Rfam assigns this 174-nucleotide RNA sequence from Sinocyclocheilus anshuiensis to the family "U2 spliceosomal RNA". The family's RNA type in Rfam is spliceosomal small nuclear RNA. For this family Rfam cites "A conserved pseudouridine modification in eukaryotic U2 snRNA induces a change in branch-site architecture" (Newby and Greenbaum, RNA, 2001). The organism belongs to Sinocyclocheilus, within Eukaryota. Clan: U2 clan. A search with the family's covariance model found it, with a score of 105 bits. Pairs were carried over by alignment from the consensus structure, which is taken from published work.
RNA sequence: AAAACUGUUCAAAACAAAAAAUCUGUUCUUAUCAGUUUAAUAUCUGAUAUGUACCCUGUCUGGGGACUGCAUAUUAAAUGGAUUUUUGGAUCAUGGAGCUGGAUUUGGGGCUUGCUCCGUCCACUCCACGCAUUGGUCUGGUCUUGCAGUAUCUCCAGAAACGGUGUGUUUCCC
Numbered sequence: 001a002a003a004a005c006u007g008u009u010c011a012a013a014a015c016a017a018a019a020a021a022u023c024u025g026u027u028c029u030u031a032u033c034a035g036u037u038u039a040a041u042a043u044c045u046g047a048u049a050u051g052u053a054c055c056c057u058g059u060c061u062g063g064g065g066a067c068u069g070c071a072u073a074u075u076a077a078a079u080g081g082a083u084u085u086u087u088g089g090a091u092c093a094u095g096g097a098g099c100u101g102g103a104u105u106u107g108g109g110g111c112u113u114g115c116u117c118c119g120u121c122c123a124c125u126c127c128a129c130g131c132a133u134u135g136g137u138c139u140g141g142u143c144u145u146g147c148a149g150u151a152u153c154u155c156c157a158g159a160a161a162c163g164g165u166g167u168g169u170u171u172c173c174c
Stems, first nucleotide, its partner, number of pairs: 001006001030049006051067002054064003095127004101121002107118004130167006137159005